[Rfam]
RNA sequence: UGCAAGUAUUUUACGAUUAAGAAGCAAUUGUCUCUUGUAUGGAUCAUUUAUACCUAU
Numbered sequence: 001u002g003c004a005a006g007u008a009u010u011u012u013a014c015g016a017u018u019a020a021g022a023a024g025c026a027a028u029u030g031u032c033u034c035u036u037g038u039a040u041g042g043a044u045c046a047u048u049u050a051u052a053c054c055u056a057u
Stems, first nucleotide, its partner, number of pairs: 018037005024031002
Plastid-rps18 3UTR RNA: a 57-nucleotide RNA from Olea europaea. For this family Rfam cites "Retrograde signaling in plants: A critical review focusing on the GUN pathway and beyond" (Richter et al., Plant Commun, 2023). Lineage of the source: Eukaryota > Pentapetalae > asterids > Olea > Olea europaea. From the family's description: Plastid rps18 is a non-coding RNA (ncRNA) present in plastids. It was identified as a short stem-loop motif in the 3 prime untranslate region (3UTR) of rps18 gene. Pairs were carried over by alignment from the consensus structure, which was predicted with LocARNA. It scores 68 bits against the family's covariance model.